Shown here is a 132-nucleotide sequence from Tupaia belangeri, a member of the family "Small nucleolar RNA SNORA1".
The family's RNA type in Rfam is H/ACA-box small nucleolar RNA.
From the family's description: ACA1 is a member of the H/ACA class of snoRNA that guide the sites of modification of uridines to pseudouridines.
Taxonomically the source falls in Tupaia (Eukaryota, Vertebrata, Theria, Tupaiidae).
It is one of the family's seed sequences.
Gene Ontology terms of the family: RNA processing and nucleolus.

[Rfam]
RNA sequence: AGCCUCAUUCUAGUUUCAAUUGGACACUGUGGAUCAGUGUCCAAAAUUGUUAAUGUGGCUAAAUUGAGACACAGGCUAUGCUUCCAUCACAGUAAACGUAUUACAGUGGUGACAAUGAGACCUGUAACAUUU
Numbered sequence: 001a002g003c004c005u006c007a008u009u010c011u012a013g014u015u016u017c018a019a020u021u022g023g024a025c026a027c028u029g030u031g032g033a034u035c036a037g038u039g040u041c042c043a044a045a046a047u048u049g050u051u052a053a054u055g056u057g058g059c060u061a062a063a064u065u066g067a068g069a070c071a072c073a074g075g076c077u078a079u080g081c082u083u084c085c086a087u088c089a090c091a092g093u094a095a096a097c098g099u100a101u102u103a104c105a106g107u108g109g110u111g112a113c114a115a116u117g118a119g120a121c122c123u124g125u126a127a128c129a130u131u132u
Stems, first nucleotide, its partner, number of pairs: 002059003006055003021043007071125005085111006